[Rfam]
RNA sequence: CUCAGCUCUCAGUCAGCUGACCAGUCUCCUCCUGACUGGUUUGGUGUUACAGAGCUGGGACAGAACGUCUCUACUUGCGUUCGGCAGCGCUGCUUCUGUUUUAGAGGGAGUGCUGCUGAGGUGCUGCAGAGCAUGGCCCAGUGAGAGUGGUCUGUCCUGGUCCCACGUCAGGACAGGCCUAGUGCAGGGCUGUACAUC
Numbered sequence: 001c002u003c004a005g006c007u008c009u010c011a012g013u014c015a016g017c018u019g020a021c022c023a024g025u026c027u028c029c030u031c032c033u034g035a036c037u038g039g040u041u042u043g044g045u046g047u048u049a050c051a052g053a054g055c056u057g058g059g060a061c062a063g064a065a066c067g068u069c070u071c072u073a074c075u076u077g078c079g080u081u082c083g084g085c086a087g088c089g090c091u092g093c094u095u096c097u098g099u100u101u102u103a104g105a106g107g108g109a110g111u112g113c114u115g116c117u118g119a120g121g122u123g124c125u126g127c128a129g130a131g132c133a134u135g136g137c138c139c140a141g142u143g144a145g146a147g148u149g150g151u152c153u154g155u156c157c158u159g160g161u162c163c164c165a166c167g168u169c170a171g172g173a174c175a176g177g178c179c180u181a182g183u184g185c186a187g188g189g190c191u192g193u194a195c196a197u198c
Base pairs, nucleotide, nucleotide: 001059002058003057004056005055006054007053008052009051012050013049016045017044018043019042020041022038023037024036025035026034069131070130071129072128077124078123079122080121081120083117084116085115086114087113088112090110091109094106095105096104097103133193134192135191136190137189138188139187149179150178151177153175154174155173156172157171158170159169